[Rfam]
RNA: Glutamine riboswitch aptamer (glnA leader)
RNA sequence: AUCGUUCAUUUUGAGUAUCUCAAAACGGAAGUAAGCGAAAGUUGAAGGAACGCAUG
Numbered sequence: 001a002u003c004g005u006u007c008a009u010u011u012u013g014a015g016u017a018u019c020u021c022a023a024a025a026c027g028g029a030a031g032u033a034a035g036c037g038a039a040a041g042u043u044g045a046a047g048g049a050a051c052g053c054a055u056g
Base pairs, nucleotide, nucleotide: 003052004051005050006049007048009025010024011023012022013021028053034043035042036041